[Rfam]
RNA sequence: CGGCGGGACACCUCUCCCCAACGAGAGGCGCCCAUCUGCAAGGAUGGAACGA
Numbered sequence: 001c002g003g004c005g006g007g008a009c010a011c012c013u014c015u016c017c018c019c020a021a022c023g024a025g026a027g028g029c030g031c032c033c034a035u036c037u038g039c040a041a042g043g044a045u046g047g048a049a050c051g052a
Stems, first nucleotide, its partner, number of pairs: 011028006032047006

Rfam assigns this 52-nucleotide RNA from Microvirga thermotolerans to the family "serC leader".
A search with the family's covariance model found it, with a score of 70 bits.
A reference for the family is Corbino et al. (2005), "Evidence for a second class of S-adenosylmethionine riboswitches and other regulatory RNA motifs in alpha-proteobacteria", Genome Biol.
This family is a putative regulatory RNA structure that is found upstream of the serC-serA operon in some alpha-proteobacteria.
Lineage of the source: Bacteria > Pseudomonadati > Pseudomonadota > Hyphomicrobiales > Microvirga.